Potassium channel RNA editing signal: a 114-nucleotide sequence from Spodoptera litura.
RNA sequence: GUCGGUUAUGGGGACAUGGCCCCCAAGACGUACCUGGGUAUGUUCGUGGGGGCUCUGUGCGCGUUGGCUGGUGUGCUGACUAUCGCUCUACCUGUGCCUGUCAUUGUGUCCAAC
Numbered sequence: 001g002u003c004g005g006u007u008a009u010g011g012g013g014a015c016a017u018g019g020c021c022c023c024c025a026a027g028a029c030g031u032a033c034c035u036g037g038g039u040a041u042g043u044u045c046g047u048g049g050g051g052g053c054u055c056u057g058u059g060c061g062c063g064u065u066g067g068c069u070g071g072u073g074u075g076c077u078g079a080c081u082a083u084c085g086c087u088c089u090a091c092c093u094g095u096g097c098c099u100g101u102c103a104u105u106g107u108g109u110c111c112a113a114c
Stems, first nucleotide, its partner, number of pairs: 001114002004111002007108005013102004018097001021094001037077004050062001

Its family is annotated with adenosine to inosine editing in the Gene Ontology. On this family, see Bhalla et al., Nat Struct Mol Biol 2004: "Control of human potassium channel inactivation by editing of a small mRNA hairpin". Rfam classes the family as a cis-regulatory element. This family represents a group of sequences related to the human potassium channel Kv1.1 hairpin element which directs the efficient modification of an adenosine to inosine by an adenosine deaminase acting on RNA (ADAR). The ADAR modification causes an isoleucine/valine recoding event which lies in the ion-conducting pore of the potassium channel. A search with the family's covariance model found it, with a score of 100 bits.